RNA sequence: CGAUGCGUUAACCCGGCGUUAAGCUUUAUGGGUGUUUACUAAUUCCCGUCCAGUUUUCUGGAUUCUUACCGAGCGGCUGGGGCUGCUCUGUUUGACGCCUCCCUGUUAAACUCCUGAGAGCCGCUGCCCGCGGCUCUUUUUUU
Numbered sequence: 001c002g003a004u005g006c007g008u009u010a011a012c013c014c015g016g017c018g019u020u021a022a023g024c025u026u027u028a029u030g031g032g033u034g035u036u037u038a039c040u041a042a043u044u045c046c047c048g049u050c051c052a053g054u055u056u057u058c059u060g061g062a063u064u065c066u067u068a069c070c071g072a073g074c075g076g077c078u079g080g081g082g083c084u085g086c087u088c089u090g091u092u093u094g095a096c097g098c099c100u101c102c103c104u105g106u107u108a109a110a111c112u113c114c115u116g117a118g119a120g121c122c123g124c125u126g127c128c129c130g131c132g133g134c135u136c137u138u139u140u141u142u143u
Stems, first nucleotide, its partner, number of pairs: 002045002005014001015040002020038005049062004071088006094107004116138009
Shown here is a 143-nucleotide sequence from Nitratireductor mangrovi, a member of the family "Alphaproteobacterial sRNA BjrC1505". For this family Rfam cites "Small RNAs of the Bradyrhizobium/Rhodopseudomonas lineage and their analysis" (Madhugiri et al., RNA Biol, 2012).